The record is a 73-nucleotide RNA sequence from Thermoflavimicrobium dichotomicum, which matches "RAGATH-18 RNA" in Rfam.
Rfam classes the family as a small RNA.
A search with the family's covariance model found it, with a score of 80 bits.
RNA sequence: CCUGUGGAGUGUUAUAUCAAACGAAAGUAGUAUCUUCCCUGGAAGUACGAAAUCGGACACGUUGAAACAGGAA
Numbered sequence: 001c002c003u004g005u006g007g008a009g010u011g012u013u014a015u016a017u018c019a020a021a022c023g024a025a026a027g028u029a030g031u032a033u034c035u036u037c038c039c040u041g042g043a044a045g046u047a048c049g050a051a052a053u054c055g056g057a058c059a060c061g062u063u064g065a066a067a068c069a070g071g072a073a
Stems, first nucleotide, its partner, number of pairs: 001071005009060005022055003030048003035044002

Lineage of the source: Bacteria > Bacillati > Caryophanales > Thermoactinomycetaceae > Thermoflavimicrobium.
The base pairs follow the family's consensus structure, which is taken from published work.